[Rfam]
RNA sequence: AGAAAGCACAUUAAUUAUCCCUGGGGCCAUGGGAUAUACAAAAACCCUAUAAACAAACAAGUUAGCACAGAAUGGUUUUAGCACGAUUACUAACCUAUGACUCUAAUACCAAUUGAAGGGAAAAACUC
Numbered sequence: 001a002g003a004a005a006g007c008a009c010a011u012u013a014a015u016u017a018u019c020c021c022u023g024g025g026g027c028c029a030u031g032g033g034a035u036a037u038a039c040a041a042a043a044a045c046c047c048u049a050u051a052a053a054c055a056a057a058c059a060a061g062u063u064a065g066c067a068c069a070g071a072a073u074g075g076u077u078u079u080a081g082c083a084c085g086a087u088u089a090c091u092a093a094c095c096u097a098u099g100a101c102u103c104u105a106a107u108a109c110c111a112a113u114u115g116a117a118g119g120g121a122a123a124a125a126c127u128c
Stems, first nucleotide, its partner, number of pairs: 009118001011116006022105005028099006048083001055077002058074002062070002
The record is a 128-nucleotide RNA sequence from Vitis vinifera, which matches "MIR845_2 microRNA precursor family" in Rfam.